[Rfam]
RNA sequence: UAAAUUGCAUAGAUCAAUGCUCGUAUAAGUCCGGGGAUAUGGCCCGGACGUCUCUACCCGGGAACCGUAAAUUCUCGGACUACGAGCCAGCGGUAACAGUGA
Numbered sequence: 001u002a003a004a005u006u007g008c009a010u011a012g013a014u015c016a017a018u019g020c021u022c023g024u025a026u027a028a029g030u031c032c033g034g035g036g037a038u039a040u041g042g043c044c045c046g047g048a049c050g051u052c053u054c055u056a057c058c059c060g061g062g063a064a065c066c067g068u069a070a071a072u073u074c075u076c077g078g079a080c081u082a083c084g085a086g087c088c089a090g091c092g093g094u095a096a097c098a099g100u101g102a
Base pairs, nucleotide, nucleotide: 019087020086021085022084023083024082025081029049030048031047032046033045034044035043058078059077060076061075062074063073064072
This 102-nucleotide RNA from Thermobacillus composti belongs to the Rfam family "Purine riboswitch aptamer". It scores 88 bits against the family's covariance model. NCBI's taxonomy places the organism under Bacteria, Bacillati, Bacilli, Thermobacillus, Thermobacillus composti.